RNA sequence: AGUGUGGGUAGAGGUGCAUUGACCAUGAGUAAGUAUUUCGAGGAGAAUGAGCUCCUUUGACAAAUGCUGAAAGGGGGAUUUGCCGAAGCCUUCGGUUCACUCAUAGUUCCCGGGCUGGUUUUGUGCUGAAUAAGUGCAGAACUGUCAUAUAGUGUUUUCUGCUAUAUGGAGGGCUAUCUCACGC
Numbered sequence: 001a002g003u004g005u006g007g008g009u010a011g012a013g014g015u016g017c018a019u020u021g022a023c024c025a026u027g028a029g030u031a032a033g034u035a036u037u038u039c040g041a042g043g044a045g046a047a048u049g050a051g052c053u054c055c056u057u058u059g060a061c062a063a064a065u066g067c068u069g070a071a072a073g074g075g076g077g078a079u080u081u082g083c084c085g086a087a088g089c090c091u092u093c094g095g096u097u098c099a100c101u102c103a104u105a106g107u108u109c110c111c112g113g114g115c116u117g118g119u120u121u122u123g124u125g126c127u128g129a130a131u132a133a134g135u136g137c138a139g140a141a142c143u144g145u146c147a148u149a150u151a152g153u154g155u156u157u158u159c160u161g162c163u164a165u166a167u168g169g170a171g172g173g174c175u176a177u178c179u180c181a182c183g184c
Stems, first nucleotide, its partner, number of pairs: 006179006016083003023076002032068007087116005094110002098106001117143011145169007
RNA: Lysine riboswitch aptamer